[Rfam]
RNA: Small nucleolar RNA SNORA33
Organism: Ovis aries
RNA sequence: AACCCAACCAAUGAAUCUGCUUACCUGCAUGUGUUUCUGCAGAAAUUUGGAAAAUGCUGGUAAGAGGAAAGCCAUGUUAUAAGCCUUAAAAACACUGAAAGUCAUUAAGUUCCCUGAAAAUGCCUAUAAGA
Dot-bracket structure: ...(((.........(((((..................)))))..............)))..........(.((........(.(((((..((.......))..))))).).........)).).......